[Rfam]
RNA sequence: UUAGGUAUGAAGAAAAAAAAUCAAUCGGAUUCCCAAUGAGAUAUAAUCCAUGAUUUCUCAACCAGCUACUUCUGACCUAA
Numbered sequence: 001u002u003a004g005g006u007a008u009g010a011a012g013a014a015a016a017a018a019a020a021u022c023a024a025u026c027g028g029a030u031u032c033c034c035a036a037u038g039a040g041a042u043a044u045a046a047u048c049c050a051u052g053a054u055u056u057c058u059c060a061a062c063c064a065g066c067u068a069c070u071u072c073u074g075a076c077c078u079a080a
Stems, first nucleotide, its partner, number of pairs: 001080005

A member of the RNA family "Small nucleolar RNA R12" from Striga hermonthica, 80 nucleotides long. It is annotated as a C/D-box small nucleolar RNA. About the family: snoR12 is a C/D box small nucleolar RNA, which acts as a methylation guide for 25S ribosomal RNA in plants. snoR12 has been alternatively named snoZ44 in Arabidopsis and snoZ131 in rice. The source organism's lineage runs through Eukaryota, Streptophytina, Spermatophyta, Magnoliopsida and Striga. A search with the family's covariance model found it, with a score of 67 bits. Its family is annotated with nucleolus and RNA processing in the Gene Ontology.